[Rfam]
RNA sequence: CGGAACUGCUAGGGGCGCCUAUAUGGCUGAGAAAAGAAAAUGAUUCUUAGUCCCUUGGAACCUGAUCUGGUUAAUACCAGCGGAGGGAAGUAGUCGAGGAUGUAA
Numbered sequence: 001c002g003g004a005a006c007u008g009c010u011a012g013g014g015g016c017g018c019c020u021a022u023a024u025g026g027c028u029g030a031g032a033a034a035a036g037a038a039a040a041u042g043a044u045u046c047u048u049a050g051u052c053c054c055u056u057g058g059a060a061c062c063u064g065a066u067c068u069g070g071u072u073a074a075u076a077c078c079a080g081c082g083g084a085g086g087g088a089a090g091u092a093g094u095c096g097a098g099g100a101u102g103u104a105a
Stems, first nucleotide, its partner, number of pairs: 006093005011055004017027003034048005061086003067080004

The record is a 105-nucleotide sequence from Lentibacillus populi, which matches "TPP riboswitch aptamer (THI element)" in Rfam. It scores 77 bits against the family's covariance model. The source organism's lineage runs through Bacteria, Bacillati, Caryophanales, Bacillaceae and Lentibacillus. A reference for the family is Edwards and Ferre-D'Amare (2006), "Crystal structures of the thi-box riboswitch bound to thiamine pyrophosphate analogs reveal adaptive RNA-small molecule recognition", Structure.